The family of this 98-nucleotide sequence from Bdellovibrio bacteriovorus is "Purine riboswitch aptamer". The family's consensus secondary structure is taken from published work. About the family: Riboswitches are metabolite binding domains within certain messenger RNAs that serve as precision sensors for their corresponding targets. Allosteric rearrangement of mRNA structure is mediated by ligand binding, and this results in modulation of gene expression. A class of riboswitches that selectively recognises guanine and becomes saturated at concentrations as low as 5 nM. In Bacillus subtilis, this mRNA motif is located on at least five separate transcriptional units that together encode 17 genes that are mostly involved in purine transport and purine nucleotide biosynthesis. It has also been shown that some members of this family are specific for adenine instead. Hence this family are termed purine riboswitches. The organism belongs to Bdellovibrio, within Bacteria.
[Rfam]
RNA sequence: AUUUCGUUCCCAAAGUUACCGAGUAUAAGUCGAUAAUAUGGUUCGACGUUUCUACCUGCCACCAAUAAUGGCGGUCUAUUUGGAGGGGAAUAUGUUUA
Number, nucleotide and partner (000 for none) at each position: 001a000002u000003u000004u000005c000006g000007u000008u000009c000010c000011c000012a000013a000014a000015g000016u000017u000018a000019c083020c082021g081022a080023g079024u078025a077026u000027a000028a000029g047030u046031c045032g044033a043034u000035a000036a000037u000038a000039u000040g000041g000042u000043u033044c032045g031046a030047c029048g000049u000050u000051u000052c000053u000054a000055c000056c074057u073058g072059c071060c070061a069062c000063c000064a000065a000066u000067a000068a000069u061070g060071g059072c058073g057074g056075u000076c000077u025078a024079u023080u022081u021082g020083g019084a000085g000086g000087g000088g000089a000090a000091u000092a000093u000094g000095u000096u000097u000098a000